[Rfam]
Notes
Rfam assigns this 60-nucleotide RNA sequence from Propionibacterium sp. oral taxon 192 to the family "msiK RNA". It scores 45 bits against the family's covariance model.
RNA sequence: GACGUUCGUCCCGCCACAAUGGAUCGUUGGGCACGUUCCUGCCCAUGGAGAGGAUCGGCA
Numbered sequence: 001g002a003c004g005u006u007c008g009u010c011c012c013g014c015c016a017c018a019a020u021g022g023a024u025c026g027u028u029g030g031g032c033a034c035g036u037u038c039c040u041g042c043c044c045a046u047g048g049a050g051a052g053g054a055u056c057g058g059c060a
Stems, first nucleotide, its partner, number of pairs: 010052001012050001014048003028045006
Dot-bracket structure: .........(.(.(((...........((((((......))))))))).).)........